[Rfam]
RNA sequence: UACGAUAAACGGCAAACCUGUCGAAAGGCAGCGACGCAAAGCUAAAGGGCCUUCCCGCAAGGAUGGCAGCCAGCUACCGAA
Numbered sequence: 001u002a003c004g005a006u007a008a009a010c011g012g013c014a015a016a017c018c019u020g021u022c023g024a025a026a027g028g029c030a031g032c033g034a035c036g037c038a039a040a041g042c043u044a045a046a047g048g049g050c051c052u053u054c055c056c057g058c059a060a061g062g063a064u065g066g067c068a069g070c071c072a073g074c075u076a077c078c079g080a081a
Stems, first nucleotide, its partner, number of pairs: 012037002018031005040075004047071002049067003053063003
About this RNA: c-di-GMP-I riboswitch aptamer: an 81-nucleotide RNA from Paenibacillus macerans. NCBI's taxonomy places the organism under Bacteria, Bacillati, Bacillota, Bacilli, Paenibacillus. The match comes from Rfam's covariance-model search (66 bits). The family is grouped with related families in Rfam's "c-di-GMP_I riboswitch clan". Rfam describes the family as follows. GEMM was predicted in a large-scale screen for bacterial structured RNA regulatory elements. Pairs were carried over by alignment from the consensus structure, which is taken from published work.